[Rfam]
RNA: bZIP non canonical Hac1/Xbp1 intron
Organism: Phrynocephalus forsythii
RNA sequence: CAGCGACCGGGUCUGCUGAGUCCGCAGCACUUAGACUACGUGUUCCUCUGCAGCAGGAACAGGCCCAGCUGUCGCCU
Numbered sequence: 001c002a003g004c005g006a007c008c009g010g011g012u013c014u015g016c017u018g019a020g021u022c023c024g025c026a027g028c029a030c031u032u033a034g035a036c037u038a039c040g041u042g043u044u045c046c047u048c049u050g051c052a053g054c055a056g057g058a059a060c061a062g063g064c065c066c067a068g069c070u071g072u073c074g075c076c077u
Stems, first nucleotide, its partner, number of pairs: 003075005009066005016034006043059005